This 112-nucleotide RNA sequence from Yersinia pseudotuberculosis belongs to the Rfam family "CnfY 5' UTR thermometer".
The sequence is in the family's curated seed alignment.
A reference for the family is Righetti et al. (2016), "Temperature-responsive in vitro RNA structurome of Yersinia pseudotuberculosis", Proc Natl Acad Sci U S A.
Rfam describes the family as follows. CnfY gene is associated with Yersinia virulence. RNAT functionality is impaired by point mutating the 5'UTR.
Its family is annotated with response to temperature stimulus and regulation of translation in the Gene Ontology.
Rfam classes the family as an RNA thermoregulator.
Taxonomically the source falls in Yersinia pseudotuberculosis (Bacteria, Pseudomonadati, Enterobacterales, Yersiniaceae).
RNA sequence: UGUGUUUUUUGUAAGUUCUAUUAAACACAUCAGUUUACAGCAAUGAAUUCACCAUUGUGCAUCGUCAAUAAAAGGAGUAUUUAUGAAAAAUCAAUGGCAACAUCAAUAUUUU
Numbered sequence: 001u002g003u004g005u006u007u008u009u010u011g012u013a014a015g016u017u018c019u020a021u022u023a024a025a026c027a028c029a030u031c032a033g034u035u036u037a038c039a040g041c042a043a044u045g046a047a048u049u050c051a052c053c054a055u056u057g058u059g060c061a062u063c064g065u066c067a068a069u070a071a072a073a074g075g076a077g078u079a080u081u082u083a084u085g086a087a088a089a090a091u092c093a094a095u096g097g098c099a100a101c102a103u104c105a106a107u108a109u110u111u112u
Stems, first nucleotide, its partner, number of pairs: 015101003018097004022083004027078002030076002034072004040058006